RNA sequence: GGGUGCUCGUGGCGCAUAGGCGCGCCGGAGCAGGUUUUUGCAGUGCUGGUCGGGCCGCCAGCG
Numbered sequence: 001g002g003g004u005g006c007u008c009g010u011g012g013c014g015c016a017u018a019g020g021c022g023c024g025c026c027g028g029a030g031c032a033g034g035u036u037u038u039u040g041c042a043g044u045g046c047u048g049g050u051c052g053g054g055c056c057g058c059c060a061g062c063g
Base pairs, nucleotide, nucleotide: 005031006030007029008028010027011026012025013024014023015022044063045062046061047060048059049058050057